RNA sequence: UGGCGGGGGAGCACCACAACCGGAGGAGCCUGCGGUUUAAUUGGACUCAACGCCGGACAUCUCACCGGUCCCGACAGUAGUAACGACAGUCAGUUUGACGAACUUACUCGAGCUACUGAGAGGAGGUGCAUGGCCGCCGUCAGCUCGUACCGUGAGGCGUCCUGUUAAGUCAGGCAACGAGCGAGACCCGCACUUCUAGUUGCCAGCAAUACCCUCGAGGUAGUUGGGUACACUAGGAGGACUGCCGCUGCUAAAGCGGAGGAAGGAACGGGCAACGGUAGGUCAGUAUGCCCCGAAUGGACCGGGCAACACGCGGGCUACAAUGGCUACGACAGUGGGAUGCUACGCCGAGAGGCGACGCUAAUCUCUAAACGUAGUCGUAGUUCGGAUUGCGGGCUGAAACUCGCCCACAUGAAGCUGGAUUCGGUAGUAAUCGCGUGUCACAAGCGCGCGGUGAAUACGUCCCUGCUCCUUGCACACACCGCCCGUCAAAGCACCCGAGUGAGGUCCGGAUGAGGCGCGUUCCACGCGUCGAAUCUGGGCUUCGCAAGGGGGCUUAAGUCGUAACAAGGUAGCCGUAGGGGAAUCUGCGGCUGGAUC
Numbered sequence: 001u002g003g004c005g006g007g008g009g010a011g012c013a014c015c016a017c018a019a020c021c022g023g024a025g026g027a028g029c030c031u032g033c034g035g036u037u038u039a040a041u042u043g044g045a046c047u048c049a050a051c052g053c054c055g056g057a058c059a060u061c062u063c064a065c066c067g068g069u070c071c072c073g074a075c076a077g078u079a080g081u082a083a084c085g086a087c088a089g090u091c092a093g094u095u096u097g098a099c100g101a102a103c104u105u106a107c108u109c110g111a112g113c114u115a116c117u118g119a120g121a122g123g124a125g126g127u128g129c130a131u132g133g134c135c136g137c138c139g140u141c142a143g144c145u146c147g148u149a150c151c152g153u154g155a156g157g158c159g160u161c162c163u164g165u166u167a168a169g170u171c172a173g174g175c176a177a178c179g180a181g182c183g184a185g186a187c188c189c190g191c192a193c194u195u196c197u198a199g200u201u202g203c204c205a206g207c208a209a210u211a212c213c214c215u216c217g218a219g220g221u222a223g224u225u226g227g228g229u230a231c232a233c234u235a236g237g238a239g240g241a242c243u244g245c246c247g248c249u250g251c252u253a254a255a256g257c258g259g260a261g262g263a264a265g266g267a268a269c270g271g272g273c274a275a276c277g278g279u280a281g282g283u284c285a286g287u288a289u290g291c292c293c294c295g296a297a298u299g300g301a302c303c304g305g306g307c308a309a310c311a312c313g314c315g316g317g318c319u320a321c322a323a324u325g326g327c328u329a330c331g332a333c334a335g336u337g338g339g340a341u342g343c344u345a346c347g348c349c350g351a352g353a354g355g356c357g358a359c360g361c362u363a364a365u366c367u368c369u370a371a372a373c374g375u376a377g378u379c380g381u382a383g384u385u386c387g388g389a390u391u392g393c394g395g396g397c398u399g400a401a402a403c404u405c406g407c408c409c410a411c412a413u414g415a416a417g418c419u420g421g422a423u424u425c426g427g428u429a430g431u432a433a434u435c436g437c438g439u440g441u442c443a444c445a446a447g448c449g450c451g452c453g454g455u456g457a458a459u460a461c462g463u464c465c466c467u468g469c470u471c472c473u474u475g476c477a478c479a480c481a482c483c484g485c486c487c488g489u490c491a492a493a494g495c496a497c498c499c500g501a502g503u504g505a506g507g508u509c510c511g512g513a514u515g516a517g518g519c520g521c522g523u524u525c526c527a528c529g530c531g532u533c534g535a536a537u538c539u540g541g542g543c544u545u546c547g548c549a550a551g552g553g554g555g556c557u558u559a560a561g562u563c564g565u566a567a568c569a570a571g572g573u574a575g576c577c578g579u580a581g582g583g584g585a586a587u588c589u590g591c592g593g594c595u596g597g598a599u600c
Stems, first nucleotide, its partner, number of pairs: 001479002003476003007473007016463002020427005025321001027319008035310002041056004065305007075118004080113002088108003092104003122294002125292004131288002133283003136279004143182006150157002161174004188271003193239007203228002207226003210222004242262002245259005325379007337368003342361002346357004386417001391412002394409004433455008482571001484568001487564002490561001492558004497553003502548013517533007573596010

Rfam assigns this 600-nucleotide part of an RNA from an uncultured haloarchaeon to the family "Archaeal small subunit ribosomal RNA". Its Rfam clan is "SSU clan". Its family is annotated with structural constituent of ribosome and ribosome in the Gene Ontology. The base pairs follow the family's consensus structure, which is taken from published work. The family has 86 seed sequences and 709 matches in Rfam 15.1. A reference for the family is Yusupov et al. (2001), "Crystal structure of the ribosome at 5.5 A resolution", Science.